Source information: The record is a 133-nucleotide sequence from Pullulanibacillus pueri, which matches "FMN riboswitch aptamer (RFN element)" in Rfam. Rfam describes the family as follows. The RFN element is a highly conserved domain that is found frequently in the 5'-untranslated regions of prokaryotic mRNAs that encode for flavin mononucleotide (FMN) biosynthesis and transport proteins. The base pairs follow the family's consensus structure, which is taken from published work.

RNA sequence: ACGUUCCUUCAGGGCAGGGUGUAAUUCCCGACCGGCGGUAAUAAGAGUUUUCUUUAGUCCGCGAGCCGUUGUAACGGUAGGAUCUGGUGAGAUUCCGGAACCGACAGUAAAGUCUGGAUGGGAGAAGGAUGAU
Numbered sequence: 001a002c003g004u005u006c007c008u009u010c011a012g013g014g015c016a017g018g019g020u021g022u023a024a025u026u027c028c029c030g031a032c033c034g035g036c037g038g039u040a041a042u043a044a045g046a047g048u049u050u051u052c053u054u055u056a057g058u059c060c061g062c063g064a065g066c067c068g069u070u071g072u073a074a075c076g077g078u079a080g081g082a083u084c085u086g087g088u089g090a091g092a093u094u095c096c097g098g099a100a101c102c103g104a105c106a107g108u109a110a111a112g113u114c115u116g117g118a119u120g121g122g123a124g125a126a127g128g129a130u131g132a133u
Base pairs, nucleotide, nucleotide: 005129006128007127008126009125010124017029018028019027031113032112033103034102035062036061037060038059057101058100067077083099084098085097086096087095105116106115107114
Record summary:
The source organism's lineage runs through Bacteria, Bacillati, Bacillota, Bacilli and Pullulanibacillus.